[Rfam]
RNA sequence: GCUCCGCAUCAAGAGUUGGGGCGACGCCCGACGCCAACCUGCCGAUCCGGGCAAGGUGGCACUCCCGCAAGGGAGGAUGUGGCCGAUCCGGCAAUCCCACGGACCUCA
Numbered sequence: 001g002c003u004c005c006g007c008a009u010c011a012a013g014a015g016u017u018g019g020g021g022c023g024a025c026g027c028c029c030g031a032c033g034c035c036a037a038c039c040u041g042c043c044g045a046u047c048c049g050g051g052c053a054a055g056g057u058g059g060c061a062c063u064c065c066c067g068c069a070a071g072g073g074a075g076g077a078u079g080u081g082g083c084c085g086a087u088c089c090g091g092c093a094a095u096c097c098c099a100c101g102g103a104c105c106u107c108a
Stems, first nucleotide, its partner, number of pairs: 006080005015032001017031001019029003033060003038056003041052003046103004082092004
RNA: SAM-I/IV (S-adenosyl methionine) riboswitch aptamer